Shown here is a 109-nucleotide RNA from Pseudolactococcus insecticola, a member of the family "PreQ1-II (pre queuosine) riboswitch aptamer". About the family: preQ1-II riboswitch was first reported for Weinberg et al. 2007 it was recognised in Streptococcaceae and Lactococcus families in 5' untranslated regions of genes of a membrane protein classified as COG4708 or DUF988. Meyers et al. 2008 confirm that preQ1-II recognise the queuosine (Q) precursor pre-queuosine 1 (preQ1). Q is a hyper modified nucleoside present in some anticodons in tRNAs (Try, Asn, Asp and His). Lineage of the source: Bacteria > Bacillati > Bacilli > Lactobacillales > Pseudolactococcus.

RNA sequence: UAUGAUAUACUAAUCUUUGUCUGAUGCCAUUUUGGCGCAGAUCCUCAAGACUUACUCACCUUUGCUUGAGCAUAUUACACUCGCAAAAUGCGAUAAAGGAGCUUUUUUU
Numbered sequence: 001u002a003u004g005a006u007a008u009a010c011u012a013a014u015c016u017u018u019g020u021c022u023g024a025u026g027c028c029a030u031u032u033u034g035g036c037g038c039a040g041a042u043c044c045u046c047a048a049g050a051c052u053u054a055c056u057c058a059c060c061u062u063u064g065c066u067u068g069a070g071c072a073u074a075u076u077a078c079a080c081u082c083g084c085a086a087a088a089u090g091c092g093a094u095a096a097a098g099g100a101g102c103u104u105u106u107u108u109u
Stems, first nucleotide, its partner, number of pairs: 019042005044070006057101001059099004081093004

On this family, see Kang et al., Proc Natl Acad Sci U S A 2014: "Structural determinants for ligand capture by a class II preQ1 riboswitch". The match comes from Rfam's covariance-model search (50 bits).